[Rfam]
RNA sequence: UUAAAGCCUUUCUAGGGUUCCGCCAUUACGGGUCUGGUCCGAGAGAAAGCGCAAAGAGCAAUCUUUGUACACGGAGGGAGAAAAGCCCGGGAGAU
Numbered sequence: 001u002u003a004a005a006g007c008c009u010u011u012c013u014a015g016g017g018u019u020c021c022g023c024c025a026u027u028a029c030g031g032g033u034c035u036g037g038u039c040c041g042a043g044a045g046a047a048a049g050c051g052c053a054a055a056g057a058g059c060a061a062u063c064u065u066u067g068u069a070c071a072c073g074g075a076g077g078g079a080g081a082a083a084a085g086c087c088c089g090g091g092a093g094a095u
Stems, first nucleotide, its partner, number of pairs: 008049005015040002020037002022034001023031002051068007070090001072093001076088003
About this RNA
The record is a 95-nucleotide RNA from Jeotgalibacillus alimentarius, which matches "Guanidine-I riboswitch aptamer" in Rfam. This family represents a conserved RNA structure found upstream of the ykkC and yxkD genes in Bacillus subtilis and related genes in other bacteria. The function of this family is unclear although it has been suggested that it may function to switch on efflux pumps and detoxification systems in response to harmful environmental molecules.